Background
The record is a 159-nucleotide sequence from Camphora micrantha, which matches "Small nucleolar RNA snoR111" in Rfam. It scores 46 bits against the family's covariance model. Rfam classes the family as an H/ACA-box small nucleolar RNA. On this family, see Marker et al., Curr Biol 2002: "Experimental RNomics: identification of 140 candidates for small non-messenger RNAs in the plant Arabidopsis thaliana".
[Rfam]
RNA sequence: AAAAUGAGAGAAGGGUGAUUGAGAAGAAUAUGUUCUUUCUCUGUCUCUCUUUCUCUGAUAAAUGGAGGGAAUUAGCGAAAUCAAAGUGUAGAGAUAUCAUCUCAGUCGCCCUUUCGUCAUUGGUUGGACUUGGCGAUUUGAUUGUUGACUCGAUCACAU
Numbered sequence: 001a002a003a004a005u006g007a008g009a010g011a012a013g014g015g016u017g018a019u020u021g022a023g024a025a026g027a028a029u030a031u032g033u034u035c036u037u038u039c040u041c042u043g044u045c046u047c048u049c050u051u052u053c054u055c056u057g058a059u060a061a062a063u064g065g066a067g068g069g070a071a072u073u074a075g076c077g078a079a080a081u082c083a084a085a086g087u088g089u090a091g092a093g094a095u096a097u098c099a100u101c102u103c104a105g106u107c108g109c110c111c112u113u114u115c116g117u118c119a120u121u122g123g124u125u126g127g128a129c130u131u132g133g134c135g136a137u138u139u140g141a142u143u144g145u146u147g148a149c150u151c152g153a154u155c156a157c158a159u
Base pairs, nucleotide, nucleotide: 006055007054008053009052010051011050013047014046015045017042088155091151092150093149096142097141098140099139105137106136107135108134109133110132
NCBI's taxonomy places the organism under Eukaryota, Viridiplantae, Embryophyta, Laurales, Camphora.